Overview: The family of this 71-nucleotide sequence from Bradyrhizobium japonicum is "Makes More Granules Regulator RNA (mmgR)". The organism belongs to Bradyrhizobium, within Bacteria. Rfam classes the family as a small RNA. The family has 87 seed sequences and 1,791 matches in Rfam 15.1. The literature on the family includes a 2005 paper in Genome Biol by Corbino et al., "Evidence for a second class of S-adenosylmethionine riboswitches and other regulatory RNA motifs in alpha-proteobacteria".
[Rfam]
Nucleotides: 071
Stems, first nucleotide, its partner, number of pairs: 008019004037056008
Number, partner (000 for none) and nucleotide at each position: 001000c002000c003000c004000a005000g006000a007000g008019g009018c010017c011016c012000u013000c014000a015000u016011g017010g018009g019008c020000g021000u022000u023000u024000c025000c026000u027000c028000c029000c030000u031000g032000a033000c034000u035000a036000a037056g038055g039054c040053c041052a042051c043050c044049c045000u046000u047000c048000g049044g050043g051042g052041u053040g054039g055038c056037u057000c058000u059000u060000u061000u062000u063000u064000u065000c066000g067000g068000c069000u070000a071000u